[Rfam]
Annotation: The family of this 430-nucleotide RNA from Odocoileus virginianus is "Small Cajal body-specific RNA 2". The match comes from Rfam's covariance-model search (360 bits). The base pairs follow the family's consensus structure, which is taken from published work. Rfam 15.1 lists 612 matches to the family in 498 species. The literature on the family includes a 2004 paper in Curr Biol by Tycowski et al., "Guide RNAs with 5' caps and novel box C/D snoRNA-like domains for modification of snRNAs in metazoa".
RNA sequence: CUUCGCCGGAGGGAGAGCGGGCUGCAAAUGAGGUUACUGUGUGUUGCUGUGUGGUGUUGUGUGUGGGGGGUGGGGGGCGGCGCGUGUAGGCCGAGUGUGUGAGUGGAUGCGUGAAUGUGUGAGUGGAUGAGUUAAUGUGUGAGUGCGUGUGCCUGCCCCUGCGCCCCCUCCCCCGGCCUACACGUUGAUCUUAUUUGAUCGGGUUGUGACUCCAGCCCCGCCGGGCCGACCCGAGAUGAAAAGCUUCCUUCCUGCGAAGCCCUUCCUCGGGGCGCUGUGCAGCGAGGCACCUUGGGCGGUGGCAACGCCGUGGCCCCGGAGGUUCCGGAGCUGGUCCUAUGGGGCCCGGCGCUCAGAAGUGAUGAAUUGAUCAGAUAGACGAGGCCGGUCUUGUCCCGCGCCAUUGAUUAAAGAGGCGAUUCUGAUCUGA
Numbered sequence: 001c002u003u004c005g006c007c008g009g010a011g012g013g014a015g016a017g018c019g020g021g022c023u024g025c026a027a028a029u030g031a032g033g034u035u036a037c038u039g040u041g042u043g044u045u046g047c048u049g050u051g052u053g054g055u056g057u058u059g060u061g062u063g064u065g066g067g068g069g070g071u072g073g074g075g076g077g078c079g080g081c082g083c084g085u086g087u088a089g090g091c092c093g094a095g096u097g098u099g100u101g102a103g104u105g106g107a108u109g110c111g112u113g114a115a116u117g118u119g120u121g122a123g124u125g126g127a128u129g130a131g132u133u134a135a136u137g138u139g140u141g142a143g144u145g146c147g148u149g150u151g152c153c154u155g156c157c158c159c160u161g162c163g164c165c166c167c168c169u170c171c172c173c174c175g176g177c178c179u180a181c182a183c184g185u186u187g188a189u190c191u192u193a194u195u196u197g198a199u200c201g202g203g204u205u206g207u208g209a210c211u212c213c214a215g216c217c218c219c220g221c222c223g224g225g226c227c228g229a230c231c232c233g234a235g236a237u238g239a240a241a242a243g244c245u246u247c248c249u250u251c252c253u254g255c256g257a258a259g260c261c262c263u264u265c266c267u268c269g270g271g272g273c274g275c276u277g278u279g280c281a282g283c284g285a286g287g288c289a290c291c292u293u294g295g296g297c298g299g300u301g302g303c304a305a306c307g308c309c310g311u312g313g314c315c316c317c318g319g320a321g322g323u324u325c326c327g328g329a330g331c332u333g334g335u336c337c338u339a340u341g342g343g344g345c346c347c348g349g350c351g352c353u354c355a356g357a358a359g360u361g362a363u364g365a366a367u368u369g370a371u372c373a374g375a376u377a378g379a380c381g382a383g384g385c386c387g388g389u390c391u392u393g394u395c396c397c398g399c400g401c402c403a404u405u406g407a408u409u410a411a412a413g414a415g416g417c418g419a420u421u422c423u424g425a426u427c428u429g430a
Base pairs, nucleotide, nucleotide: 053165054164055163056162057161058086059085060084061083062082063081105120107118108117109116123152124151125150128147129146131144132143194242195241196240199234200233201232202231204229205228206227208226211225212224213223215221216220265322266321267320268319270317271316272315274314275313276312279311280310282308283307284306287303288302290299291298330350331349332348333347334346335344336343337342354429355428356427357426364422365421366420367419368418369417383402384401385400388397